[Rfam]
RNA sequence: CCAUCAUCACCAUCACCCUGACUAGUCUUUCAGGCGAUUGGUGCUGGGAGACGAAAAGAUCUUCCAGUGGUGCGUGAACGCGAGAAAAAGCCCCCGGAAGAUAUCUUCCGGGGGCUUUUUUAU
Numbered sequence: 001c002c003a004u005c006a007u008c009a010c011c012a013u014c015a016c017c018c019u020g021a022c023u024a025g026u027c028u029u030u031c032a033g034g035c036g037a038u039u040g041g042u043g044c045u046g047g048g049a050g051a052c053g054a055a056a057a058g059a060u061c062u063u064c065c066a067g068u069g070g071u072g073c074g075u076g077a078a079c080g081c082g083a084g085a086a087a088a089a090g091c092c093c094c095c096g097g098a099a100g101a102u103a104u105c106u107u108c109c110g111g112g113g114g115c116u117u118u119u120u121u122a123u
Base pairs, nucleotide, nucleotide: 008043009042010041012038013037014036017034018033019032020031021030044067045066046065047064048063049062050061051060085120086119087118088117089116090115091114092113093112094111095110096109097108098107099106100105